RNA sequence: AGUAGUAACAGCAAAGUAGGGUGAGAAUCCCUACCGCCGAAGGGGCGCGGGUUCCUCGUCAAUGUUCGUCAGACGAGGGUCAGCCGGUCCUAAAUCUUUCCUUAAUAAGAGGAAGAUGAAAGGGAAACAGGUUAAUAUUCCCGUGCCACCUGGGUACCUGCCGUAAGGCUUCGCUCAAUCCUUGACGCUUUGAGAUAAGCCGAGCAGAGCCAUCGCUCUGUUUAACCGUUAAAAUCCGAGGAGAGCCGUAAUGGCGAGAAUCGGAUGAAUGCGGGAAUAGCCUGCCGAUAUGGUGGGUUCGGCCGAGUCUUGGAGCCCGUGAAAAAAGGAUUGAGAUUUGGAAUCCCAGGUGUCCGUACCUAGAACCAACACAGGUGUCCCUAGGUGAGUAGCCUCAGGCGUGU
Number, nucleotide and partner (000 for none) at each position: 001a000002g000003u000004a000005g000006u000007a000008a000009c000010a000011g000012c000013a000014a000015a000016g034017u033018a032019g031020g030021g029022u000023g000024a000025g000026a000027a000028u000029c021030c020031c019032u018033a017034c016035c401036g400037c399038c398039g000040a000041a000042g000043g380044g379045g378046c377047g000048c000049g360050g359051g000052u000053u000054c078055c077056u076057c075058g074059u073060c000061a000062a000063u071064g070065u000066u000067c000068g000069u000070c064071a063072g000073a059074c058075g057076a056077g055078g054079g000080u000081c000082a000083g000084c000085c356086g355087g354088u000089c123090c122091u000092a000093a000094a117095u116096c115097u114098u113099u112100c000101c109102u108103u000104a000105a000106u000107a000108a102109g101110a000111g000112g099113a098114a097115g096116a095117u094118g000119a000120a000121a000122g090123g089124g000125a000126a000127a144128c143129a000130g141131g140132u000133u000134a000135a000136u000137a000138u000139u000140c131141c130142c000143g128144u127145g000146c000147c352148a351149c350150c349151u348152g347153g346154g345155u000156a000157c000158c000159u000160g000161c000162c000163g000164u000165a000166a000167g000168g000169c000170u000171u000172c000173g000174c000175u000176c000177a000178a000179u000180c000181c328182u327183u326184g000185a000186c000187g316188c315189u314190u313191u312192g311193a310194g309195a308196u000197a000198a000199g303200c302201c301202g300203a222204g221205c220206a219207g218208a217209g000210c000211c000212a000213u000214c000215g000216c000217u208218c207219u206220g205221u204222u203223u000224a000225a000226c274227c273228g272229u271230u000231a000232a000233a000234a000235u265236c264237c263238g262239a261240g000241g000242a000243g000244a000245g255246c254247c253248g000249u000250a000251a000252u000253g247254g246255c245256g000257a000258g000259a000260a000261u239262c238263g237264g236265a235266u000267g000268a000269a000270u000271g229272c228273g227274g226275g000276a000277a000278u000279a000280g000281c000282c000283u000284g000285c000286c292287g000288a000289u000290a000291u000292g286293g000294u000295g000296g000297g000298u000299u000300c202301g201302g200303c199304c000305g000306a000307g000308u195309c194310u193311u192312g191313g190314a189315g188316c187317c000318c000319g000320u000321g000322a000323a000324a000325a000326a183327a182328g181329g000330a000331u000332u000333g000334a000335g000336a000337u000338u000339u000340g000341g000342a000343a000344u000345c154346c153347c152348a151349g150350g149351u148352g147353u000354c087355c086356g085357u000358a000359c050360c049361u000362a000363g000364a000365a000366c375367c374368a000369a000370c000371a000372c000373a000374g367375g366376u000377g046378u045379c044380c043381c000382u000383a395384g394385g393386u000387g000388a000389g000390u000391a000392g000393c385394c384395u383396c000397a000398g038399g037400c036401g035402u000403g000404u000
This 404-nucleotide part of an RNA from candidate division MSBL1 archaeon SCGC-AAA382A13 belongs to the Rfam family "Archaeal large subunit ribosomal RNA". The source organism's lineage runs through Archaea, Methanobacteriati, Methanobacteriota and candidate division MSBL1. The family's consensus secondary structure is taken from published work.